[Rfam]
RNA sequence: GGGAGAUGAAGAGUGGUCAACGCUUGCAUUUAAAUAUACAAGAUGGGGUGUCCGCCUAAAGCCUGUUACGACAAUUGGACACCUCCAUUUUUAAACCAUCUGAUCCC
Numbered sequence: 001g002g003g004a005g006a007u008g009a010a011g012a013g014u015g016g017u018c019a020a021c022g023c024u025u026g027c028a029u030u031u032a033a034a035u036a037u038a039c040a041a042g043a044u045g046g047g048g049u050g051u052c053c054g055c056c057u058a059a060a061g062c063c064u065g066u067u068a069c070g071a072c073a074a075u076u077g078g079a080c081a082c083c084u085c086c087a088u089u090u091u092u093a094a095a096c097c098a099u100c101u102g103a104u105c106c107c
Stems, first nucleotide, its partner, number of pairs: 001107004014098004023042004045085003051078001063077001065075002

A member of the RNA family "Small nucleolar RNA Z279/snoR105/snoR108" from Helianthus annuus, 107 nucleotides long. Rfam classes the family as a C/D-box small nucleolar RNA. About the family: This family includes the plant snoRNAs known as Z279, snoR105 and snoR108. NCBI's taxonomy places the organism under Eukaryota, Tracheophyta, Euphyllophyta, Asteraceae, Helianthus. Gene Ontology terms of the family: RNA processing and nucleolus.